[Rfam]
This 109-nucleotide RNA from Thermolongibacillus altinsuensis belongs to the Rfam family "pan motif". Rfam classes the family as a cis-regulatory element. The source organism's lineage runs through Bacteria, Bacillati, Bacillota, Anoxybacillaceae and Thermolongibacillus. The match comes from Rfam's covariance-model search (69 bits).
RNA sequence: UGGGCAGUAUCUUUGUUAGAACUGCACCAUUGUUUCAUAUAUUCAAAUCAAAAUUAAAAUGAAAAUGAAAAUGUUCUGCCUUGAUCCGAAUGCGGACGGGGACAGAGGG
Numbered sequence: 001u002g003g004g005c006a007g008u009a010u011c012u013u014u015g016u017u018a019g020a021a022c023u024g025c026a027c028c029a030u031u032g033u034u035u036c037a038u039a040u041a042u043u044c045a046a047a048u049c050a051a052a053a054u055u056a057a058a059a060u061g062a063a064a065a066u067g068a069a070a071a072u073g074u075u076c077u078g079c080c081u082u083g084a085u086c087c088g089a090a091u092g093c094g095g096a097c098g099g100g101g102a103c104a105g106a107g108g109g
Stems, first nucleotide, its partner, number of pairs: 001029003004025005010020002076105003079101005085096003